[Rfam]
RNA sequence: CAAACAAUCAAAUAUGAAACUCGUAUAAAAUUGGGAAUAUGGCCCAAAAGUCUCUACCAGGCUACCGUAAAUGGCUUGACUACGAGUGCACGGAUUACCGCU
Numbered sequence: 001c002a003a004a005c006a007a008u009c010a011a012a013u014a015u016g017a018a019a020c021u022c023g024u025a026u027a028a029a030a031u032u033g034g035g036a037a038u039a040u041g042g043c044c045c046a047a048a049a050g051u052c053u054c055u056a057c058c059a060g061g062c063u064a065c066c067g068u069a070a071a072u073g074g075c076u077u078g079a080c081u082a083c084g085a086g087u088g089c090a091c092g093g094a095u096u097a098c099c100g101c102u
Base pairs, nucleotide, nucleotide: 019087020086021085022084023083024082025081031047032046033045034044035043058078059077060076061075062074063073064072

Rfam assigns this 102-nucleotide RNA sequence from Halalkalibacter wakoensis to the family "Purine riboswitch aptamer".
Riboswitches are metabolite binding domains within certain messenger RNAs that serve as precision sensors for their corresponding targets.